[Rfam]
RNA sequence: AAAAAGGGCCUUUGUCGUAAUGGCACACGUAUUUUUUAUCUAUUUAUUAAGAAAUACGAUGCGGAAUGGCGAUCAAGACAUUUCGAAGGCAAAAUUUUUAUCUGAAAUAAGAGGAUGCUGUUGUUUCUAUGAGAUUUCAUAGAGUAUACGACGCGCCUCA
Numbered sequence: 001a002a003a004a005a006g007g008g009c010c011u012u013u014g015u016c017g018u019a020a021u022g023g024c025a026c027a028c029g030u031a032u033u034u035u036u037u038a039u040c041u042a043u044u045u046a047u048u049a050a051g052a053a054a055u056a057c058g059a060u061g062c063g064g065a066a067u068g069g070c071g072a073u074c075a076a077g078a079c080a081u082u083u084c085g086a087a088g089g090c091a092a093a094a095u096u097u098u099u100a101u102c103u104g105a106a107a108u109a110a111g112a113g114g115a116u117g118c119u120g121u122u123g124u125u126u127c128u129a130u131g132a133g134a135u136u137u138c139a140u141a142g143a144g145u146a147u148a149c150g151a152c153g154c155g156c157c158u159c160a
Base pairs, nucleotide, nucleotide: 008090009089010088011087012086013025014024015023016022017021026061027060028058029057030056031055032054033053034052035051036050037049062085063084064083065082066081067080068079111159112158114157116155117154118153120152121151122150123149
U11 spliceosomal RNA: a 160-nucleotide RNA sequence from Brachionus calyciflorus. The family's RNA type in Rfam is spliceosomal small nuclear RNA. Pairs were carried over by alignment from the consensus structure, which is taken from published work.